[Rfam]
RNA sequence: UUAAUACGCCGUGAGAACGAUAACCUUGUAAUCUGGUCAGGAUAGAAAUAUAGCAGCCAUCUCAAGAAGUAUUGUGUCUUGCGGUUUUUAUUUUUCU
Numbered sequence: 001u002u003a004a005u006a007c008g009c010c011g012u013g014a015g016a017a018c019g020a021u022a023a024c025c026u027u028g029u030a031a032u033c034u035g036g037u038c039a040g041g042a043u044a045g046a047a048a049u050a051u052a053g054c055a056g057c058c059a060u061c062u063c064a065a066g067a068a069g070u071a072u073u074g075u076g077u078c079u080u081g082c083g084g085u086u087u088u089u090a091u092u093u094u095u096c097u
Base pairs, nucleotide, nucleotide: 004091005090006089008087009084010083011082012081013080014079017075018074019073020072021071022070025066026065027064028063034059035058036057037056042051043050044049

The record is a 97-nucleotide sequence from Metamycoplasma salivarium, which matches "Bacterial small signal recognition particle RNA" in Rfam.